[Rfam]
RNA: TPP riboswitch aptamer (THI element)
Organism: Amycolatopsis alkalitolerans
RNA sequence: CUCGGUUGCCACGGGAGUCCGGUCCUCAAACCGGGCUGAGAGGCGGGCCGCCGGCCCGCGACCGUUCGCACCUGAUCCGGAUAAUGCCGGCGCAGGGAGGCCGAAUCCCUUCCUG
Dot-bracket structure: .....(.(((((((..(((((((......)))))))......(((((((...)))))))..)))).....((((..((((......))))..))))..))).)............